[Rfam]
RNA sequence: CGCAUUCCGCGUGACUGGCGAAAACCCGGCAAUCGUCUUACCGGGGCGUGGGGAACCACGAGGGAGCGCGGAACCAUAUCGGGCCAUAGGGCCAAGCCGUUCGCCUGGGCAGCUUUU
Numbered sequence: 001c002g003c004a005u006u007c008c009g010c011g012u013g014a015c016u017g018g019c020g021a022a023a024a025c026c027c028g029g030c031a032a033u034c035g036u037c038u039u040a041c042c043g044g045g046g047c048g049u050g051g052g053g054a055a056c057c058a059c060g061a062g063g064g065a066g067c068g069c070g071g072a073a074c075c076a077u078a079u080c081g082g083g084c085c086a087u088a089g090g091g092c093c094a095a096g097c098c099g100u101u102c103g104c105c106u107g108g109g110c111a112g113c114u115u116u117u
Base pairs, nucleotide, nucleotide: 005073006072007071008070009069010068011067012066015063016062017105018104019103020102021101048059049058050057051056096110097109098108
RNA: ZMP/ZTP riboswitch aptamer (pfl RNA motif)